Source information
The family of this 172-nucleotide sequence from Clostridium pasteurianum is "Lysine riboswitch aptamer". It scores 105 bits against the family's covariance model. Rfam links the family to the GO term lysine biosynthetic process.
RNA sequence: UUUAGAGAUAGAGGCGCGAUGCUUAAGAGUACCCUUAUGGAGGUAAGCACUAUGAAGUAUUGGGAAAGGAAUCAUCGCCGAAGUAAAUGGCUAUUGCUUUAACGCUAUAUUACUGGUUUUGCAUAUAAUAUAUGUAUGACUGUCACAAUUUUUGUGGAGCGCUAUCCUGAGC
Dot-bracket structure: ......(((((....((((((.((.......((..(((..................)))..))......)).))))))...((((((((((............))))).)))))((((.((((((.....)))))).)))).((((((...))))))....)))))......